RNA sequence: GGAGACGAACCCCCGAGUCACGAAUUCGGGCAGGAGUGGGGGACCCACAGGUUCCACUGCCGGCUGCAACGCUGACCAGCGUGCGCAGGCGGCUCGGGGUGAAGCCACCGACAGGUGGCGGGGCACUUUCCAGCCCUAAUCCGACAGCUCACCUCACAGGCGUGGGAAAGGACAGCA
Numbered sequence: 001g002g003a004g005a006c007g008a009a010c011c012c013c014c015g016a017g018u019c020a021c022g023a024a025u026u027c028g029g030g031c032a033g034g035a036g037u038g039g040g041g042g043a044c045c046c047a048c049a050g051g052u053u054c055c056a057c058u059g060c061c062g063g064c065u066g067c068a069a070c071g072c073u074g075a076c077c078a079g080c081g082u083g084c085g086c087a088g089g090c091g092g093c094u095c096g097g098g099g100u101g102a103a104g105c106c107a108c109c110g111a112c113a114g115g116u117g118g119c120g121g122g123g124c125a126c127u128u129u130c131c132a133g134c135c136c137u138a139a140u141c142c143g144a145c146a147g148c149u150c151a152c153c154u155c156a157c158a159g160g161c162g163u164g165g166g167a168a169a170g171g172a173c174a175g176c177a
Stems, first nucleotide, its partner, number of pairs: 011162001013160002018035002036157006046096001097142003105118004121136004

The family of this 177-nucleotide sequence from Nocardioides currus is "c-di-AMP riboswitch aptamer (ydaO/yuaA leader)". The pairing is the family consensus, mapped onto this sequence. Lineage of the source: Bacteria > Bacillati > Actinomycetota > Actinomycetes > Nocardioides. This family represents a conserved RNA structure found upstream of the ydaO and yuaA genes in Bacillus subtilis and related genes in other bacteria. The ydaO/yuaA element is thought to act as a genetic 'off' switch for the ydaO and yuaA genes in its native state. It is believed that the element may be triggered during osmotic shock leading to activation of ydaO, a predicted amino acid transporter gene, and members of the yuaA-yubG operon which code for KtrA and KtrB K+ transporters.